[Rfam]
RNA sequence: CUGGAAUGAUGCUUCUUUAGCCAAAUCAGACAUUUUGAUGUGCUCCAUAAGGCAUCCUCUUAGUUUUCAAGAUUGUAGCUUUGAAUGGAUGCCUUUUGUUGAAGCUGCAUCCUCUGAUGAUAAACACUAGAGAAUGGUUGCUUACUGACCAGA
Numbered sequence: 001c002u003g004g005a006a007u008g009a010u011g012c013u014u015c016u017u018u019a020g021c022c023a024a025a026u027c028a029g030a031c032a033u034u035u036u037g038a039u040g041u042g043c044u045c046c047a048u049a050a051g052g053c054a055u056c057c058u059c060u061u062a063g064u065u066u067u068c069a070a071g072a073u074u075g076u077a078g079c080u081u082u083g084a085a086u087g088g089a090u091g092c093c094u095u096u097u098g099u100u101g102a103a104g105c106u107g108c109a110u111c112c113u114c115u116g117a118u119g120a121u122a123a124a125c126a127c128u129a130g131a132g133a134a135u136g137g138u139u140g141c142u143u144a145c146u147g148a149c150c151a152g153a
Base pairs, nucleotide, nucleotide: 001152002151003150004149
Notes: The family of this 153-nucleotide RNA from Corchorus capsularis is "small nucleolar RNA snoR127". Rfam 15.1 lists 273 matches to the family in 170 species. The family's RNA type in Rfam is C/D-box small nucleolar RNA. The literature on the family includes a 2009 paper in Nucleic Acids Res by Chen and Wu, "Mining small RNA sequencing data: a new approach to identify small nucleolar RNAs in Arabidopsis". Rfam links the family to the GO terms RNA processing and nucleolus.